[Rfam]
RNA sequence: UGAUACCAGGGUCAAAAGCUCCAAAAGCCGUUCGUGCUUGCACGAUUAGGUUUUUGAGCUUGGGACCCGCAAAAACAUGAGGAUGCAGCGAUUUUCAAGGAAAAUCAGCGAAUCCGAAUGUUUUUAGAAUUGCGAAAGUUGCAUAGCAACGGAGCAAUUCGUGGAUAUCA
Number, nucleotide and partner (000 for none) at each position: 001u170002g169003a168004u167005a166006c000007c164008a000009g000010g067011g066012u065013c064014a000015a000016a061017a060018g059019c058020u057021c056022c000023a054024a053025a052026a051027g000028c049029c000030g047031u000032u045033c044034g043035u042036g041037c000038u000039u000040g000041c036042a035043c034044g033045a032046u000047u030048a000049g028050g000051u026052u025053u024054u023055u000056g021057a020058g019059c018060u017061u016062g000063g000064g013065a012066c011067c010068c000069g000070c000071a125072a124073a123074a122075a121076c120077a119078u118079g000080a000081g115082g114083a113084u112085g000086c000087a000088g000089c000090g106091a105092u104093u103094u102095u101096c100097a000098a000099g000100g096101a095102a094103a093104a092105u091106c090107a000108g000109c000110g000111a000112a084113u083114c082115c081116g000117a000118a078119u077120g076121u075122u074123u073124u072125u071126a000127g160128a159129a158130u157131u156132g155133c154134g000135a000136a000137a000138g150139u149140u148141g147142c000143a000144u000145a000146g000147c141148a140149a139150c138151g000152g000153a000154g133155c132156a131157a130158u129159u128160c127161g000162u000163g000164g007165a000166u005167a004168u003169c002170a001